Rfam assigns this 45-nucleotide sequence from Roseibacillus persicicus to the family "Acido-Lenti-1 RNA". The match comes from Rfam's covariance-model search (40 bits). Rfam classes the family as a small RNA.
RNA sequence: CCCGGGGUUGCACCCCGGGCUAUCCUCUUUCGCCCCGUUGGGGCU
Numbered sequence: 001c002c003c004g005g006g007g008u009u010g011c012a013c014c015c016c017g018g019g020c021u022a023u024c025c026u027c028u029u030u031c032g033c034c035c036c037g038u039u040g041g042g043g044c045u
Stems, first nucleotide, its partner, number of pairs: 001019008032044005